This 124-nucleotide RNA sequence from Treponema denticola belongs to the Rfam family "TD-1 RNA". The organism belongs to Treponema denticola, within Bacteria.
RNA sequence: UUUAAACUGCAAGUUUGCUUGCGGCGUUAACUGCAAGCAAACUCGCUUCAUUGUAUGUACGCUGCCAGCGUACUAAUUGGAUAAUCUCCAAAGUUUACACUUUGUUCAAUUAUUCAAUUUUAAU
Numbered sequence: 001u002u003u004a005a006a007c008u009g010c011a012a013g014u015u016u017g018c019u020u021g022c023g024g025c026g027u028u029a030a031c032u033g034c035a036a037g038c039a040a041a042c043u044c045g046c047u048u049c050a051u052u053g054u055a056u057g058u059a060c061g062c063u064g065c066c067a068g069c070g071u072a073c074u075a076a077u078u079g080g081a082u083a084a085u086c087u088c089c090a091a092a093g094u095u096u097a098c099a100c101u102u103u104g105u106u107c108a109a110u111u112a113u114u115c116a117a118u119u120u121u122a123a124u
Stems, first nucleotide, its partner, number of pairs: 012043013057073007076118010089104006
Dot-bracket structure: ...........(((((((((((((......))))))))))))).............(((((((...)))))))..((((((((((...((((((....))))))....))))))))))......